Rfam assigns this 569-nucleotide part of an RNA from Trichuris suis to the family "Eukaryotic small subunit ribosomal RNA". Rfam's curators put it in the seed alignment. NCBI's taxonomy places the organism under Eukaryota, Bilateria, Nematoda, Trichuridae, Trichuris. The literature on the family includes a 2001 paper in Science by Yusupov et al., "Crystal structure of the ribosome at 5.5 A resolution".
Nucleotides: 569
Base pairs, nucleotide, nucleotide: 001567002566003564004563005562007561008560009559010558011557012556013555016551017550020515021514022513023512024511025401027399028398029397030396031395032394033393034392035390036389041056042055043054044053065385066384067383068382069381071379076119077118078117079116080115089108090107092105093104094103123373124372126371127370128369129368132367133365134361135360136359137357138356139355144183145182146181148179149178150159151158152157163174164173165172189349190348191347194314195313196312198311199310200309201308204305205304206303207302317342320339321338322337324335405467406466408464409463410462411461418453419452428447429446432443433442434441435440474505479500480499481498482497483496484495521543522542523541524540525539526538527537528536
Number, partner (000 for none) and nucleotide at each position: 001567u002566g003564a004563c005562g006000g007561a008560a009559g010558g011557g012556c013555a014000c015000c016551a017550c018000c019000a020515g021514g022513a023512g024511u025401g026000g027399a028398g029397c030396a031395u032394g033393c034392g035390g036389c037000u038000u039000a040000a041056u042055u043054u044053g045000a046000c047000u048000c049000a050000a051000c052000a053044c054043g055042g056041g057000a058000a059000a060000a061000c062000u063000c064000a065385c066384c067383c068382g069381u070000u071379c072000c073000g074000a075000a076119c077118a078117c079116u080115g081000u082000g083000a084000g085000g086000a087000u088000u089108g090107a091000c092105a093104g094103a095000u096000c097000a098000a099000g100000a101000g102000c103094u104093c105092u106000u107090u108089c109000u110000u111000g112000a113000u114000u115080c116079a117078g118077u119076g120000g121000g122000u123373a124372g125000u126371g127370g128369u129368g130000c131000a132367u133365g134361g135360c136359c137357g138356u139355u140000c141000u142000u143000a144183g145182u146181u147000g148179g149178u150159g151158g152157a153000g154000c155000g156000a157152u158151u159150u160000g161000u162000c163174u164173g165172g166000c167000u168000a169000a170000u171000u172165c173164c174163g175000a176000u177000a178149a179148c180000g181146a182145a183144c184000g185000a186000g187000a188000c189349u190348c191347u192000g193000g194314c195313c196312u197000a198311c199310u200309a201308a202000c203000u204305a205304g206303c207302g208000g209000c210000g211000g212000u213000a214000u215000u216000c217000a218000c219000g220000u221000c222000u223000c224000u225000c226000g227000c228000g229000a230000c231000g232000c233000c234000g235000u236000g237000c238000c239000u240000a241000c242000g243000u244000g245000u246000c247000g248000g249000c250000u251000g252000a253000g254000c255000a256000c257000a258000g259000u260000c261000g262000c263000c264000g265000u266000u267000c268000g269000c270000g271000c272000g273000a274000g275000c276000u277000c278000c279000g280000c281000g282000g283000a284000c285000a286000c287000c288000u289000g290000c291000a292000g293000u294000c295000c296000g297000g298000c299000g300000a301000c302207c303206g304205c305204u306000u307000c308201u309200u310199a311198g312196a313195g314194g315000g316000a317342c318000c319000a320339g321338c322337g323000a324335c325000a326000c327000u328000u329000u330000c331000g332000c333000a334000a335324g336000c337322c338321g339320c340000a341000c342317g343000a344000g345000a346000a347191a348190g349189a350000g351000c352000a353000a354000u355139a356138a357137c358000a359136g360135g361134u362000c363000u364000g365133u366000g367132a368129u369128g370127c371126c372124c373123u374000u375000a376000g377000a378000u379071g380000u381069a382068c383067g384066g385065g386000g387000c388000u389036g390035c391000a392034c393033g394032c395031g396030u397029g398028c399027u400000a401025c402000a403000c404000u405467g406466a407000c408464g409463g410462c411461g412000u413000c414000a415000g416000c417000g418453u419452g420000c421000g422000u423000u424000c425000a426000a427000g428447c429446c430000c431000g432443g433442c434441c435440u436000g437000g438000c439000a440435a441434g442433g443432c444000c445000g446429g447428g448000a449000a450000a451000u452419c453418g454000g455000c456000u457000g458000a459000a460000a461411c462410g463409u464408u465000c466406u467405c468000g469000u470000g471000a472000c473000u474505g475000g476000g477000a478000c479500a480499g481498g482497g483496a484495a485000u486000u487000g488000c489000a490000a491000u492000u493000a494000u495484u496483u497482c498481c499480c500479u501000c502000g503000a504000a505474c506000g507000a508000g509000g510000a511024a512023u513022u514021c515020c516000c517000a518000g519000u520000a521543a522542g523541c524540g525539c526538g527537a528536g529000u530000c531000a532000u533000c534000a535000g536528c537527u538526u539525g540524c541523g542522u543521u544000g545000a546000c547000u548000a549000c550017g551016u552000c553000c554000c555013u556012g557011c558010c559009c560008u561007u562005u563004g564003u565000a566002c567001a568000c569000a